[Rfam]
RNA sequence: UCAGUUGACCGGGUGACCGCUGGCGGGUGGGUAACUGCCCGUUGGAGGAAAGUCCGGGCUCCAUCGAAACACGGUGACGGCUAACAGCCGCCGGGGGCGACCCUAGGGAAAGUGCCACAGAAAGCAAACCGCCUCGGCAUGCCGAGGUAAGGAUGAAAGGGUGCGGUAAGAGCGCACCGGGCGUCUGGCGACAGAGGCCGCACGGCAAACCCCACCGGGAGCAAAACCAAAUAGGGAUGACGCGGGCUUUAUGCCCAGCCUGUUUCGAGGCCAGAUCAUCCGGGUUGGUUGCACGAGCGCGCCGGCGACGGCCGCCUCAGAUGAAUGGUCACCGCGUCGCUUUUAGCGGCCUUACAGAACCCGGCUUAUAGGUCAACUGGCAUA
Numbered sequence: 001u002c003a004g005u006u007g008a009c010c011g012g013g014u015g016a017c018c019g020c021u022g023g024c025g026g027g028u029g030g031g032u033a034a035c036u037g038c039c040c041g042u043u044g045g046a047g048g049a050a051a052g053u054c055c056g057g058g059c060u061c062c063a064u065c066g067a068a069a070c071a072c073g074g075u076g077a078c079g080g081c082u083a084a085c086a087g088c089c090g091c092c093g094g095g096g097g098c099g100a101c102c103c104u105a106g107g108g109a110a111a112g113u114g115c116c117a118c119a120g121a122a123a124g125c126a127a128a129c130c131g132c133c134u135c136g137g138c139a140u141g142c143c144g145a146g147g148u149a150a151g152g153a154u155g156a157a158a159g160g161g162u163g164c165g166g167u168a169a170g171a172g173c174g175c176a177c178c179g180g181g182c183g184u185c186u187g188g189c190g191a192c193a194g195a196g197g198c199c200g201c202a203c204g205g206c207a208a209a210c211c212c213c214a215c216c217g218g219g220a221g222c223a224a225a226a227c228c229a230a231a232u233a234g235g236g237a238u239g240a241c242g243c244g245g246g247c248u249u250u251a252u253g254c255c256c257a258g259c260c261u262g263u264u265u266c267g268a269g270g271c272c273a274g275a276u277c278a279u280c281c282g283g284g285u286u287g288g289u290u291g292c293a294c295g296a297g298c299g300c301g302c303c304g305g306c307g308a309c310g311g312c313c314g315c316c317u318c319a320g321a322u323g324a325a326u327g328g329u330c331a332c333c334g335c336g337u338c339g340c341u342u343u344u345a346g347c348g349g350c351c352u353u354a355c356a357g358a359a360c361c362c363g364g365c366u367u368a369u370a371g372g373u374c375a376a377c378u379g380g381c382a383u384a
Stems, first nucleotide, its partner, number of pairs: 001380010011369001012333007020045009050367003054364005059221004072217005078090004092106001093104004107212002112210002114206003129152002131148007160178006179201001180199003184195004225290004235281006260274003264270001297316001301312004